[Rfam]
RNA sequence: GGCCAGAUAAGGCAUUUUCGCAGCAUCCGGCACUUAUUGUCGGAUGCGAUGCUUGCGCAUCUUAUCCGACC
Number, nucleotide and partner (000 for none) at each position: 001g000002g031003c030004c029005a000006g027007a026008u025009a000010a000011g000012g021013c020014a000015u000016u000017u000018u000019c000020g013021c012022a000023g000024c000025a008026u007027c006028c000029g004030g003031c002032a000033c000034u000035u000036a000037u000038u000039g070040u069041c068042g067043g066044a065045u064046g063047c000048g061049a060050u059051g058052c057053u000054u000055g000056c000057g052058c051059a050060u049061c048062u000063u046064a045065u044066c043067c042068g041069a040070c039071c000
This 71-nucleotide RNA from Escherichia coli belongs to the Rfam family "Nucleoid-associated noncoding RNA 4 (CssrE)".
Rfam describes the family as follows. In E. coli small RNA transcribed from repeated extragenic palindromic element (REP325) called nucleoid-associated ncRNA 4 (nRNA4) collaborates HU protein in condensing the DNA. The secondary structure but not the sequence of the RNA is important in nucleoid condensation. Also identified in Shigella as CssrE.
Rfam 15.1 lists 870 matches to the family in 32 species.
The family's RNA type in Rfam is small RNA.
NCBI's taxonomy places the organism under Bacteria, Enterobacterales, Enterobacteriaceae, Escherichia, Escherichia coli.
A search with the family's covariance model found it, with a score of 61 bits.
A reference for the family is Qian et al. (2015), "A New Noncoding RNA Arranges Bacterial Chromosome Organization", MBio.